[Rfam]
RNA sequence: CGUAUGGUGUCCGGCACAGGAUCGGAUGGCGAUGCGGCCCAAUUGAGGU
Numbered sequence: 001c002g003u004a005u006g007g008u009g010u011c012c013g014g015c016a017c018a019g020g021a022u023c024g025g026a027u028g029g030c031g032a033u034g035c036g037g038c039c040c041a042a043u044u045g046a047g048g049u
Stems, first nucleotide, its partner, number of pairs: 001036005007030002011025004015020001
This 49-nucleotide RNA sequence from Pseudidiomarina sediminum belongs to the Rfam family "L31-Gammaproteobacteria ribosomal protein leader". Lineage of the source: Bacteria > Pseudomonadati > Gammaproteobacteria > Pseudidiomarina > Pseudidiomarina sediminum. It is one of the family's seed sequences. On this family, see Eckert and Weinberg, BMC Microbiol 2020: "Discovery of 20 novel ribosomal leader candidates in bacteria and archaea". It is annotated as a cis-regulatory leader. Clan: Ribosomal Protein L31 Leader clan.